[Rfam]
RNA sequence: UGAACCGUGGCGGGAGAGUCCUCCAGCUAUUUGGUGGCGCCGUAGGAGCAAAUCCUCCCCAGGAAUCUCUCAGGCACCCGUACCGCCACGGCGAG
Numbered sequence: 001u002g003a004a005c006c007g008u009g010g011c012g013g014g015a016g017a018g019u020c021c022u023c024c025a026g027c028u029a030u031u032u033g034g035u036g037g038c039g040c041c042g043u044a045g046g047a048g049c050a051a052a053u054c055c056u057c058c059c060c061a062g063g064a065a066u067c068u069c070u071c072a073g074g075c076a077c078c079c080g081u082a083c084c085g086c087c088a089c090g091g092c093g094a095g
Stems, first nucleotide, its partner, number of pairs: 006090008020037002023034001039075003042071001046069003053061001

Description:
Glycine riboswitch aptamer: a 95-nucleotide RNA sequence from Arthrobacter sp. ERGS1:01. The source organism's lineage runs through Bacteria, Actinomycetota, Micrococcales, Micrococcaceae and Arthrobacter. The base pairs follow the family's consensus structure. It scores 65 bits against the family's covariance model. This family represents the bacterial glycine riboswitch.